[Rfam]
RNA sequence: AACGUGCUCCGGGGUCGGUGAGAAUCCGAACCGGCGGUGAAAGUCCGCGAGCCGUGUCCUCCGCAAGGAAGAGACGGUUGAGCCGGUGAAAUUCCGGCACCGACGGUUAAAGUCCGGAUGGGAGGAUGCACGCG
Dot-bracket structure: ..((((((((.....(((.......))).[[((((((.....[[))))..(((((..................)))))...(((((.......)))))]])).(((.....]]))).......))).)))))..
Numbered sequence: 001a002a003c004g005u006g007c008u009c010c011g012g013g014g015u016c017g018g019u020g021a022g023a024a025u026c027c028g029a030a031c032c033g034g035c036g037g038u039g040a041a042a043g044u045c046c047g048c049g050a051g052c053c054g055u056g057u058c059c060u061c062c063g064c065a066a067g068g069a070a071g072a073g074a075c076g077g078u079u080g081a082g083c084c085g086g087u088g089a090a091a092u093u094c095c096g097g098c099a100c101c102g103a104c105g106g107u108u109a110a111a112g113u114c115c116g117g118a119u120g121g122g123a124g125g126a127u128g129c130a131c132g133c134g
Stems, first nucleotide, its partner, number of pairs: 003132005008126003016028003030113002032102002034048004043100002051078005082098005104116003